Rfam assigns this 130-nucleotide sequence from Dipodomys ordii to the family "Small nucleolar RNA SNORA51". Rfam links the family to the GO terms RNA processing and nucleolus. Pairs were carried over by alignment from the consensus structure, which was predicted with PFOLD. About the family: ACA51 is a member of the H/ACA class of snoRNA that guide the sites of modification of uridines to pseudouridines. Taxonomically the source falls in Dipodomys (Eukaryota, Eumetazoa, Gnathostomata, Mammalia).
RNA sequence: GAUGUCCAGAUGCUAACCACAGGCUGUGUUCUUACACUGACUAUAGAAAGAGAAGGCAGAGUAAAUCUACCCCAUAUACACAUCAGCCCAGACCCCAUGCCUGGUCAGUAUUGUGAAUGGGGAGGCAUGG
Numbered sequence: 001g002a003u004g005u006c007c008a009g010a011u012g013c014u015a016a017c018c019a020c021a022g023g024c025u026g027u028g029u030u031c032u033u034a035c036a037c038u039g040a041c042u043a044u045a046g047a048a049a050g051a052g053a054a055g056g057c058a059g060a061g062u063a064a065a066u067c068u069a070c071c072c073c074a075u076a077u078a079c080a081c082a083u084c085a086g087c088c089c090a091g092a093c094c095c096c097a098u099g100c101c102u103g104g105u106c107a108g109u110a111u112u113g114u115g116a117a118u119g120g121g122g123a124g125g126c127a128u129g130g
Stems, first nucleotide, its partner, number of pairs: 003056001005054001007052001021042002026037004070122006084108001086106001088104004093099001